Notes:
The record is a 121-nucleotide RNA sequence from a Selenomonadales bacterium, which matches "Group II catalytic intron D1-D4-2" in Rfam. The base pairs follow the family's consensus structure.
RNA sequence: GAGGGUAGGCCCCUCGGAGCCGCUAUGCAGUUGGAGGCUCCAAACCACCUUAAGCUGCGGUGACCAAAAGUCACGGUGGUGAACGUUAAGGCGAAAAGUCGGGGAUGAGACCCCGGCAGGU
Numbered sequence: 001g002a003g004g005g006u007a008g009g010c011c012c013c014u015c016g017g018a019g020c021c022g023c024u025a026u027g028c029a030g031u032u033g034g035a036g037g038c039u040c041c042a043a044a045c046c047a048c049c050u051u052a053a054g055c056u057g058c059g060g061u062g063a064c065c066a067a068a069a070g071u072c073a074c075g076g077u078g079g080u081g082a083a084c085g086u087u088a089a090g091g092c093g094a095a096a097a098g099u100c101g102g103g104g105a106u107g108a109g110a111c112c113c114c115g116g117c118a119g120g121u
Base pairs, nucleotide, nucleotide: 001015002014003013004012005011016041017040018039019038020037021036023034024033025032046120048091049090050089051088052087053086054080055079057077058076061073062072063071064070098117099116100115101114102113103112

Overview: On this family, see Bonen and Vogel, Trends Genet 2001: "The ins and outs of group II introns".